[Rfam]
RNA sequence: UUUUUCGUGGUUCGUAACCAUCCCACGUUAAAAAACUAGGAGGAU
Numbered sequence: 001u002u003u004u005u006c007g008u009g010g011u012u013c014g015u016a017a018c019c020a021u022c023c024c025a026c027g028u029u030a031a032a033a034a035a036c037u038a039g040g041a042g043g044a045u
Stems, first nucleotide, its partner, number of pairs: 006027005015038002